Cyanobacterial functional RNA 1: a 54-nucleotide sequence. Rfam classes the family as a small RNA. The base pairs follow the family's consensus structure, which is taken from published work. The sequence is in the family's curated seed alignment.
RNA sequence: AUGGGGGAUUCCCCAUACUCCUCACACACUAAAUCGCCCGAUUAAUCGGGCUUU
Numbered sequence: 001a002u003g004g005g006g007g008a009u010u011c012c013c014c015a016u017a018c019u020c021c022u023c024a025c026a027c028a029c030u031a032a033a034u035c036g037c038c039c040g041a042u043u044a045a046u047c048g049g050g051c052u053u054u
Base pairs, nucleotide, nucleotide: 001016002015003014004013005012006011036051037050038049039048040047041046